[Rfam]
RNA sequence: UUUUAGGCUUCACUAGAAGCCACCAACGUUUACUUCGGACGUCAU
Number, nucleotide and partner (000 for none) at each position: 001u000002u000003u000004u000005a000006g021007g020008c019009u018010u017011c016012a000013c000014u000015a000016g011017a010018a009019g008020c007021c006022a000023c000024c000025a000026a000027c000028g000029u000030u000031u000032a000033c000034u000035u000036c000037g000038g000039a000040c000041g000042u000043c000044a000045u000
Rfam assigns this 45-nucleotide RNA sequence from Toxoplasma gondii to the family "Histone 3' UTR stem-loop". About the family: The mRNAs of metazoan histone genes lack a poly-A tail. 3' end processing occurs at a site between a highly conserved stem-loop (modelled by this family) and a purine rich region around 20 nts downstream (the histone downstream element, or HDE). The stem-loop is bound by a 31 kDa stem-loop binding protein (SLBP - also termed the histone hairpin binding protein, or HBP). Together with U7 snRNA binding of the HDE, SLBP binding nucleate s the formation of the processing complex. Taxonomically the source falls in Toxoplasma gondii (Eukaryota, Conoidasida, Coccidia, Toxoplasma). It is one of the family's seed sequences. On this family, see Tan et al., Science 2013: "Structure of histone mRNA stem-loop, human stem-loop binding protein, and 3'hExo ternary complex".